[Rfam]
RNA: c-di-GMP-I riboswitch aptamer
RNA sequence: ACCCGAAAAAGGCUACUCUUUCCGAAAGGAAAGAUUCGCAAAGUCUGUGAACCUGUGACUAUCCAUGUUAUGGUUGCCAGAUUGCCGAA
Numbered sequence: 001a002c003c004c005g006a007a008a009a010a011g012g013c014u015a016c017u018c019u020u021u022c023c024g025a026a027a028g029g030a031a032a033g034a035u036u037c038g039c040a041a042a043g044u045c046u047g048u049g050a051a052c053c054u055g056u057g058a059c060u061a062u063c064c065a066u067g068u069u070a071u072g073g074u075u076g077c078c079a080g081a082u083u084g085c086c087g088a089a
Stems, first nucleotide, its partner, number of pairs: 012039002017034006042083004048079002051074003058068002